[Rfam]
RNA sequence: AAGCGUUCACCUUCUUAUUCGAAGGCGCAGUUCGACUCAAGCCAUGGAACGGGGACUUGGG
Numbered sequence: 001a002a003g004c005g006u007u008c009a010c011c012u013u014c015u016u017a018u019u020c021g022a023a024g025g026c027g028c029a030g031u032u033c034g035a036c037u038c039a040a041g042c043c044a045u046g047g048a049a050c051g052g053g054g055a056c057u058u059g060g061g
Stems, first nucleotide, its partner, number of pairs: 004051005010025005036061006042054002
A member of the RNA family "Glutamine-II riboswitch aptamer" from Prochlorococcus marinus, 61 nucleotides long. The family's consensus secondary structure is taken from published work. Rfam links the family to the GO term glutamine binding. Taxonomically the source falls in Prochlorococcus marinus (Bacteria, Cyanophyceae, Synechococcales, Prochlorococcus). For this family Rfam cites "Structure and ligand binding of the glutamine-II riboswitch" (Huang et al., Nucleic Acids Res, 2019). It is one of the family's seed sequences.